[Rfam]
RNA: mir-395 microRNA precursor family
RNA sequence: AUGUCUCCUAGAGUUCUUCUGAACACUUCAUUGGGAAUACAAUUUCAUUUUAUGAUGAUUACCCACUGAAGUGUUUGGGGGAACUCCCGGACCCAU
Numbered sequence: 001a002u003g004u005c006u007c008c009u010a011g012a013g014u015u016c017u018u019c020u021g022a023a024c025a026c027u028u029c030a031u032u033g034g035g036a037a038u039a040c041a042a043u044u045u046c047a048u049u050u051u052a053u054g055a056u057g058a059u060u061a062c063c064c065a066c067u068g069a070a071g072u073g074u075u076u077g078g079g080g081g082a083a084c085u086c087c088c089g090g091a092c093c094c095a096u
Base pairs, nucleotide, nucleotide: 006091007090008089011086012085013084014083015082016081017080018079019078020077022076023075024073025072026071027070028069029068030067032065033064034063035062